The record is a 136-nucleotide sequence from Campylorhamphus procurvoides, which matches "Small nucleolar RNA SNORA5" in Rfam. By type it is an H/ACA-box small nucleolar RNA. Taxonomically the source falls in Campylorhamphus (Eukaryota, Chordata, Gnathostomata, Aves). ACA5 is a member of the H/ACA class of snoRNA that guide the sites of modification of uridines to pseudouridines. Clan: SNORA5 clan. The match comes from Rfam's covariance-model search (78 bits).
RNA sequence: UGCAGCCCAGUCAAAUUCGGUCCCUGCCCUGCCCAUGGCCGGGACCGGCCCACCGGCUGCCACAGUGACCUCCGUGUCCACGUGCCCUGGGUCCCCUCCCGUGGGACCUGGGGGGUAAAUCCCACUGGAGACACGC
Numbered sequence: 001u002g003c004a005g006c007c008c009a010g011u012c013a014a015a016u017u018c019g020g021u022c023c024c025u026g027c028c029c030u031g032c033c034c035a036u037g038g039c040c041g042g043g044a045c046c047g048g049c050c051c052a053c054c055g056g057c058u059g060c061c062a063c064a065g066u067g068a069c070c071u072c073c074g075u076g077u078c079c080a081c082g083u084g085c086c087c088u089g090g091g092u093c094c095c096c097u098c099c100c101g102u103g104g105g106a107c108c109u110g111g112g113g114g115g116u117a118a119a120u121c122c123c124a125c126u127g128g129a130g131a132c133a134c135g136c
Base pairs, nucleotide, nucleotide: 002060003059004058005057018047019046020045021044022043023042024041026039027038028037073128076125077124085114086113087112089109090108